[Rfam]
RNA sequence: UGCCGCUGCCCUCCUUGGGCGUUUCCUCCCUAGACUUGGGCCGCUGUUCUCAGCGGCCCCUUUCUUUUUUCGGC
Numbered sequence: 001u002g003c004c005g006c007u008g009c010c011c012u013c014c015u016u017g018g019g020c021g022u023u024u025c026c027u028c029c030c031u032a033g034a035c036u037u038g039g040g041c042c043g044c045u046g047u048u049c050u051c052a053g054c055g056g057c058c059c060c061u062u063u064c065u066u067u068u069u070u071c072g073g074c
Stems, first nucleotide, its partner, number of pairs: 008020004038059009
Dot-bracket structure: .......((((.....)))).................(((((((((....)))))))))...............
This 74-nucleotide RNA from Xanthobacter sp. SG618 belongs to the Rfam family "Makes More Granules Regulator RNA (mmgR)". SuhB later renamed mmgR (makes more granules regulator) was a putative non-coding RNA found multiple times in the Agrobacterium tumefaciens genome and related alpha-proteobacteria. Lineage of the source: Bacteria > Pseudomonadati > Alphaproteobacteria > Xanthobacteraceae > Xanthobacter.